The record is a 114-nucleotide sequence from Megamonas hypermegale, which matches "FMN riboswitch aptamer (RFN element)" in Rfam. Lineage of the source: Bacteria > Bacillati > Selenomonadales > Selenomonadaceae > Megamonas. Its family is annotated with FMN binding in the Gene Ontology.
[Rfam]
Nucleotides: 114
Stems, first nucleotide, its partner, number of pairs: 003112008017029003031094002033084002035048004043082002064080005086097003
Number, partner (000 for none) and nucleotide at each position: 001000g002000a003112c004111a005110g006109u007108c008107u009106u010105u011000g012000g013000g014000g015000c016000a017029g018028g019027g020000u021000g022000c023000a024000a025000a026000u027019c028018c029017c030000u031094a032093c033084c034083g035048g036047c037046g038045g039000u040000a041000u042000a043082g044081c045038c046037c047036g048035c049000g050000a051000g052000c053000a054000u055000g056000a057000u058000g059000c060000a061000u062000g063000a064080u065079u066078u067077g068076g069000u070000g071000a072000a073000a074000u075000u076068c077067c078066a079065a080064a081044g082043c083034c084033g085000a086097c087096a088095g089000u090000a091000u092000a093032g094031u095088c096087u097086g098000g099000a100000u101000g102000a103000g104000a105010a106009a107008a108007g109006a110005u111004u112003g113000g114000u